[Rfam]
RNA sequence: CUUUAGUUCGAUAUGAUAUUUUAUAAGGCAGAAAGGAG
Numbered sequence: 001c002u003u004u005a006g007u008u009c010g011a012u013a014u015g016a017u018a019u020u021u022u023a024u025a026a027g028g029c030a031g032a033a034a035g036g037a038g
Base pairs, nucleotide, nucleotide: 001028002027003026004025005024008016009015010014
Notes:
This 38-nucleotide sequence belongs to the Rfam family "L31-Firmicutes ribosomal protein leader". Pairs were carried over by alignment from the consensus structure, which is taken from published work.